[Rfam]
RNA sequence: GCCGGGUGUGUAGCGAGCACCUGUAACCCAUGCGGGGGCGAGAUCUGAGUGAAUGGCGUGUCGUGCCGAGAGUCGGUCGGAGAUCAGCAGCCCAUCCCAAGGGGCCACUAAGUUCGGGUGGGUAGGCGGAAGUCAUCACAUCCGAACAUCCGAAGUCGCGGGCACUGGCUAAGGCUGGGAACAGAGCAGGCAAUACCGCGCGGUGGAACCGGUGAGGGUGGAUAACGGCUGAGAGAUCGACACUCUAGGCAAUAACAACGACAUGCCAAACACAAAGAUC
Numbered sequence: 001g002c003c004g005g006g007u008g009u010g011u012a013g014c015g016a017g018c019a020c021c022u023g024u025a026a027c028c029c030a031u032g033c034g035g036g037g038g039c040g041a042g043a044u045c046u047g048a049g050u051g052a053a054u055g056g057c058g059u060g061u062c063g064u065g066c067c068g069a070g071a072g073u074c075g076g077u078c079g080g081a082g083a084u085c086a087g088c089a090g091c092c093c094a095u096c097c098c099a100a101g102g103g104g105c106c107a108c109u110a111a112g113u114u115c116g117g118g119u120g121g122g123u124a125g126g127c128g129g130a131a132g133u134c135a136u137c138a139c140a141u142c143c144g145a146a147c148a149u150c151c152g153a154a155g156u157c158g159c160g161g162g163c164a165c166u167g168g169c170u171a172a173g174g175c176u177g178g179g180a181a182c183a184g185a186g187c188a189g190g191c192a193a194u195a196c197c198g199c200g201c202g203g204u205g206g207a208a209c210c211g212g213u214g215a216g217g218g219u220g221g222a223u224a225a226c227g228g229c230u231g232a233g234a235g236a237u238c239g240a241c242a243c244u245c246u247a248g249g250c251a252a253u254a255a256c257a258a259c260g261a262c263a264u265g266c267c268a269a270a271c272a273c274a275a276a277g278a279u280c
Stems, first nucleotide, its partner, number of pairs: 001039003004022005009016001027036003042280005049273003054268010064251004069246003073240003077235001084232005090226001092221002096218002098214002101210002105206005110149001112147009122137001125134003150155001157200005166193001168191003175184003

A member of the RNA family "Plant signal recognition particle RNA" from Perkinsus olseni, 280 nucleotides long. It scores 112 bits against the family's covariance model. The organism belongs to Perkinsus, within Eukaryota. Clan: SRP clan.